[Rfam]
RNA: Bacterial RNase P class A
RNA sequence: CCAGACGGCCGGACGGUCGCUGGCCGGGGGCGACAGCCUGCCGGCUGGAGGAAAGUCCGGGCUCCACGGAACAACGGUGCCGGCUAACGGCCGGCGGGGGCGACCCCAGGGAAAGUGCCACAGAGAACAGACCGCCGGCCCGCGGCUUAUCCGUCGGCCGGCAAGGGUGAAACGGUGCGGCAAGAGCGCACCGCGCCGCCGGCAACGGCGGCGGCAGGGUAAACCCCACCGGGAGCAAGACCGAAUAGGGGCGGCAGACCGCGGUGACGAGCCGCGGUCAGGGUGUUCCGACCCGCCGCCCGGGUUGGUCGCGCGAGGCGCGCCGCAAGGCGCGUCCCAGAGGAAUGGCCGUCCCGUCGCCGCAGCGAUGCGGCGACGGACAGAACCCGGCUUACAGGCCGUCUGGCACC
Dot-bracket structure: ((((((((((((((((((.((((((((.............))))))))....[[[.[[[[[((((.......[.((((((((((.....)))))(((((....)))).)((...(((((............(((((((((.((((.....)))).)))))))..)).......((((((.......))))))(((((((((....)))))))).)..)))..)))))))))))))...((((......((((((..........................((.(.]...).))..)))))).....))))......((((((((....))))))))..........)))))))................................]]]]]]]].).))))))))))....
Numbered sequence: 001c002c003a004g005a006c007g008g009c010c011g012g013a014c015g016g017u018c019g020c021u022g023g024c025c026g027g028g029g030g031c032g033a034c035a036g037c038c039u040g041c042c043g044g045c046u047g048g049a050g051g052a053a054a055g056u057c058c059g060g061g062c063u064c065c066a067c068g069g070a071a072c073a074a075c076g077g078u079g080c081c082g083g084c085u086a087a088c089g090g091c092c093g094g095c096g097g098g099g100g101c102g103a104c105c106c107c108a109g110g111g112a113a114a115g116u117g118c119c120a121c122a123g124a125g126a127a128c129a130g131a132c133c134g135c136c137g138g139c140c141c142g143c144g145g146c147u148u149a150u151c152c153g154u155c156g157g158c159c160g161g162c163a164a165g166g167g168u169g170a171a172a173c174g175g176u177g178c179g180g181c182a183a184g185a186g187c188g189c190a191c192c193g194c195g196c197c198g199c200c201g202g203c204a205a206c207g208g209c210g211g212c213g214g215c216a217g218g219g220u221a222a223a224c225c226c227c228a229c230c231g232g233g234a235g236c237a238a239g240a241c242c243g244a245a246u247a248g249g250g251g252c253g254g255c256a257g258a259c260c261g262c263g264g265u266g267a268c269g270a271g272c273c274g275c276g277g278u279c280a281g282g283g284u285g286u287u288c289c290g291a292c293c294c295g296c297c298g299c300c301c302g303g304g305u306u307g308g309u310c311g312c313g314c315g316a317g318g319c320g321c322g323c324c325g326c327a328a329g330g331c332g333c334g335u336c337c338c339a340g341a342g343g344a345a346u347g348g349c350c351g352u353c354c355c356g357u358c359g360c361c362g363c364a365g366c367g368a369u370g371c372g373g374c375g376a377c378g379g380a381c382a383g384a385a386c387c388c389g390g391c392u393u394a395c396a397g398g399c400c401g402u403c404u405g406g407c408a409c410c
Stems, first nucleotide, its partner, number of pairs: 001406010011395001012353007020048008053393003057390005062235004073286001075231005080094005095109001096107004110226002115224002117220003132166002134162007142154004174192006193215001194213008239310004249301006281293002284290001317336008